[Rfam]
Rfam assigns this 45-nucleotide sequence from Listeria booriae to the family "PreQ1 (pre queuosine) riboswitch aptamer". The literature on the family includes a 2004 paper in J Biol Chem by Reader et al., "Identification of four genes necessary for biosynthesis of the modified nucleoside queuosine". Pairs were carried over by alignment from the consensus structure. About the family: This family is a bacterial riboswitch that binds to the metabolite preQ1, an intermediate in the biosynthesis of the modified nucleoside queuosine from GTP. One example of this riboswitch is located in the leader of the Bacillus subtilis ykvJKLM (queCDEF) operon which encodes four genes necessary for queuosine production. PreQ1 binding to the riboswitch aptamer is thought to induce premature transcription termination within the leader to down-regulate expression of these genes.
RNA sequence: GUUUCCGUGGUUCGAAACUAUCCCACGAUAAAAAACUAAGGAGUG
Numbered sequence: 001g002u003u004u005c006c007g008u009g010g011u012u013c014g015a016a017a018c019u020a021u022c023c024c025a026c027g028a029u030a031a032a033a034a035a036c037u038a039a040g041g042a043g044u045g
Stems, first nucleotide, its partner, number of pairs: 006027005016037001